[Rfam]
The record is a 75-nucleotide RNA from Chrysemys picta, which matches "Small nucleolar RNA SNORD19" in Rfam.
Nucleotides: 075
Stems, first nucleotide, its partner, number of pairs: 001066004
Number, partner (000 for none) and nucleotide at each position: 001066g002065a003064g004063a005000a006000a007000u008000g009000a010000g011000g012000a013000u014000a015000u016000a017000u018000a019000c020000u021000u022000u023000u024000g025000u026000c027000u028000g029000a030000c031000u032000g033000u034000u035000a036000c037000a038000g039000u040000g041000a042000a043000g044000a045000c046000u047000u048000c049000a050000g051000a052000u053000c054000c055000a056000a057000c058000u059000c060000u061000g062000a063004u064003c065002u066001c067000a068000c069000u070000c071000u072000g073000u074000g075000u
The family has 22 seed sequences and 1,431 matches in Rfam 15.1. The source organism's lineage runs through Eukaryota, Vertebrata, Euteleostomi, Cryptodira and Chrysemys picta. The family is grouped with related families in Rfam's "SNORD19 clan". The pairing is the family consensus, mapped onto this sequence.